[Rfam]
RNA sequence: UGAUUUGUGAGGAGGGCUUCUUCACGGAGUGGAAACUAGGAAACACGUCCAACUAGAAGCCGAGA
Dot-bracket structure: ..............(((((((....((((((............))).)))....)))))))....
Numbered sequence: 001u002g003a004u005u006u007g008u009g010a011g012g013a014g015g016g017c018u019u020c021u022u023c024a025c026g027g028a029g030u031g032g033a034a035a036c037u038a039g040g041a042a043a044c045a046c047g048u049c050c051a052a053c054u055a056g057a058a059g060c061c062g063a064g065a
Stems, first nucleotide, its partner, number of pairs: 015061007026050003029046003

Rfam assigns this 65-nucleotide RNA sequence from Synechococcus sp. CC9311 to the family "Cyano-1 RNA".
The organism belongs to Synechococcus, within Bacteria.
The base pairs follow the family's consensus structure, which is taken from published work.
Rfam classes the family as a small RNA.